[Rfam]
RNA sequence: CCAUGAACUUUGUAAUGCACACAUUACUUAGAUGGGUUCUAGAGGAAUGGAGAAA
Numbered sequence: 001c002c003a004u005g006a007a008c009u010u011u012g013u014a015a016u017g018c019a020c021a022c023a024u025u026a027c028u029u030a031g032a033u034g035g036g037u038u039c040u041a042g043a044g045g046a047a048u049g050g051a052g053a054a055a
Base pairs, nucleotide, nucleotide: 019037020036022034023033024032025031

Shown here is a 55-nucleotide RNA sequence from Solanum commersonii, a member of the family "Plastid-ndhJ 3UTR RNA". A reference for the family is Richter et al. (2023), "Retrograde signaling in plants: A critical review focusing on the GUN pathway and beyond", Plant Commun. The family's RNA type in Rfam is cis-regulatory element. It scores 51 bits against the family's covariance model. NCBI's taxonomy places the organism under Eukaryota, Spermatophyta, eudicotyledons, Solanaceae, Solanum. The family's consensus secondary structure was predicted with LocARNA.